[Rfam]
The family of this 147-nucleotide RNA is "IS605-orfB-II RNA". It is annotated as a small RNA. It is one of the family's seed sequences. The family's consensus secondary structure is taken from published work.
RNA sequence: CAUGAUGAGACUACAUUAGUCUUGAAUUGUAUAGAGGGUAGUCGCAGUCGCCCCGACUCCGACCCUUGCACGGUAUACUGUGUAAGAGUAAGGUGAGAAACAACUUUAGUUGGAAACUUUAAUUUUGUUUAUGAAUUAAAGAACUGU
Numbered sequence: 001c002a003u004g005a006u007g008a009g010a011c012u013a014c015a016u017u018a019g020u021c022u023u024g025a026a027u028u029g030u031a032u033a034g035a036g037g038g039u040a041g042u043c044g045c046a047g048u049c050g051c052c053c054c055g056a057c058u059c060c061g062a063c064c065c066u067u068g069c070a071c072g073g074u075a076u077a078c079u080g081u082g083u084a085a086g087a088g089u090a091a092g093g094u095g096a097g098a099a100a101c102a103a104c105u106u107u108a109g110u111u112g113g114a115a116a117c118u119u120u121a122a123u124u125u126u127g128u129u130u131a132u133g134a135a136u137u138a139a140a141g142a143a144c145u146g147u
Stems, first nucleotide, its partner, number of pairs: 006024007036053004044147004057097003062089002065086007073078001101112004117141009